[Rfam]
RNA sequence: AUAAUGGUACUUCUAAUAUUAAAAUAGCUUGCCGUGAAAGUCGGGAAGAGGUGAAAAUCCUAUGA
Numbered sequence: 001a002u003a004a005u006g007g008u009a010c011u012u013c014u015a016a017u018a019u020u021a022a023a024a025u026a027g028c029u030u031g032c033c034g035u036g037a038a039a040g041u042c043g044g045g046a047a048g049a050g051g052u053g054a055a056a057a058u059c060c061u062a063u064g065a
Stems, first nucleotide, its partner, number of pairs: 012062001013027003028048003032044003049061003